[Rfam]
RNA: TPP riboswitch aptamer (THI element)
Organism: Parahaliea aestuarii
RNA sequence: AUGCAAACCUGGGGGUGGCUGCGGCCUGAGAUACCAGUUUCUGGUGAACCCUUUGAACCUGAUCCGGUUAGAACCGGCGUAGGGACAGGUGCUUCGGAUGUGC
Numbered sequence: 001a002u003g004c005a006a007a008c009c010u011g012g013g014g015g016u017g018g019c020u021g022c023g024g025c026c027u028g029a030g031a032u033a034c035c036a037g038u039u040u041c042u043g044g045u046g047a048a049c050c051c052u053u054u055g056a057a058c059c060u061g062a063u064c065c066g067g068u069u070a071g072a073a074c075c076g077g078c079g080u081a082g083g084g085a086c087a088g089g090u091g092c093u094u095c096g097g098a099u100g101u102g103c
Stems, first nucleotide, its partner, number of pairs: 007090004011052004016046001017026003033045005058083004064077004